Source information:
Shown here is a 110-nucleotide sequence from Corynebacterium efficiens, a member of the family "TPP riboswitch aptamer (THI element)". The source organism's lineage runs through Bacteria, Bacillati, Actinomycetota, Mycobacteriales and Corynebacterium efficiens. It scores 62 bits against the family's covariance model.

RNA sequence: UCGAUAUUGCACGGGUGUCCGGUGAAAGUCCGGGCUGAGAGGUGGCACAGCCACAACCGUUGAACCUGAUCCGGGUAAUGCCGGCGAUAGGGAGGAAACAUGACUGAUAC
Number, nucleotide and partner (000 for none) at each position: 001u000002c000003g000004a000005u000006a000007u097008u096009g000010c094011a060012c059013g058014g057015g000016u055017g035018u034019c033020c032021g031022g000023u000024g000025a000026a000027a000028g000029u000030c000031c021032g020033g019034g018035c017036u000037g000038a000039g000040a000041g000042g054043u053044g052045g051046c050047a000048c000049a000050g046051c045052c044053a043054c042055a016056a000057c014058c013059g012060u011061u000062g000063a000064a000065c091066c090067u089068g088069a000070u000071c084072c083073g082074g081075g000076u000077a000078a000079u000080g000081c074082c073083g072084g071085c000086g000087a000088u068089a067090g066091g065092g000093a000094g010095g000096a008097a007098a000099c000100a000101u000102g000103a000104c000105u000106g000107a000108u000109a000110c000